[Rfam]
A member of the RNA family "SAM riboswitch aptamer (S box leader)" from Bacillus infantis, 103 nucleotides long.
RNA sequence: UUCUUAUCCAGAGAGGCAGAGGGACUGGCCCAAUGAAGCCUCGGCAGCGGACUCUUAUGAGUACUGUGCCAAUUCCAGCAGGUGUGAGCCUGGGAGAUAAGAA
Numbered sequence: 001u002u003c004u005u006a007u008c009c010a011g012a013g014a015g016g017c018a019g020a021g022g023g024a025c026u027g028g029c030c031c032a033a034u035g036a037a038g039c040c041u042c043g044g045c046a047g048c049g050g051a052c053u054c055u056u057a058u059g060a061g062u063a064c065u066g067u068g069c070c071a072a073u074u075c076c077a078g079c080a081g082g083u084g085u086g087a088g089c090c091u092g093g094g095a096g097a098u099a100a101g102a103a
Base pairs, nucleotide, nucleotide: 001103002102003101004100005099006098007097008096013042014041015040016039017038021031022030023029025078026077027076028075043070044069045068046067048066049065051062052061053060054059074095079092080091081090082089083088

Description:
Rfam links the family to the GO term regulation of gene expression. Taxonomically the source falls in Bacillus infantis (Bacteria, Bacillati, Bacillaceae, Bacillus). The family's consensus secondary structure is taken from published work.